[Rfam]
RNA sequence: CACACAAAGCACGUGAUGACAAAACACUGACACUGACUCCGUGAAGUUCCUUCAAUCCAACACUGAGCUUUGUGUC
Numbered sequence: 001c002a003c004a005c006a007a008a009g010c011a012c013g014u015g016a017u018g019a020c021a022a023a024a025c026a027c028u029g030a031c032a033c034u035g036a037c038u039c040c041g042u043g044a045a046g047u048u049c050c051u052u053c054a055a056u057c058c059a060a061c062a063c064u065g066a067g068c069u070u071u072g073u074g075u076c
Base pairs, nucleotide, nucleotide: 002075003074004073005072006071007070008069009068010067
This 76-nucleotide RNA from Mystacornis crossleyi belongs to the Rfam family "Small nucleolar RNA SNORD69". The organism belongs to Mystacornis, within Eukaryota. Rfam links the family to the GO terms nucleolus and RNA processing. Rfam describes the family as follows. snoRNA HBII-210 belongs to the C/D family of snoRNAs. It is the human orthologue of the mouse MBII-210 and is predicted to guide the 2'O-ribose methylation of large 28S rRNA on residue G4464. A reference for the family is Huttenhofer et al. (2001), "RNomics: an experimental approach that identifies 201 candidates for novel, small, non-messenger RNAs in mouse", EMBO J.